A member of the RNA family "SAH (S-adenosyl-L-homocysteine) riboswitch aptamer" from Nocardioides sp. Root79, 71 nucleotides long. The family's consensus secondary structure is taken from published work. Taxonomically the source falls in Nocardioides (Bacteria, Actinomycetota, Actinomycetes, Nocardioidaceae).
[Rfam]
RNA sequence: CCAGCCGAGAGGCGUUGCAACGGACCCGCGGUCCGCCACGCUCGGCGAAGCUCCAAGGACGCCUUCCGACA
Number, nucleotide and partner (000 for none) at each position: 001c000002c000003a000004g046005c045006c044007g043008a042009g000010a000011g000012g000013c000014g000015u000016u000017g000018c000019a000020a000021c035022g034023g033024a032025c031026c030027c000028g000029c000030g026031g025032u024033c023034c022035g021036c000037c000038a000039c000040g000041c000042u008043c007044g006045g005046c004047g000048a000049a000050g000051c000052u000053c000054c000055a000056a000057g000058g000059a000060c000061g000062c000063c000064u000065u000066c000067c000068g000069a000070c000071a000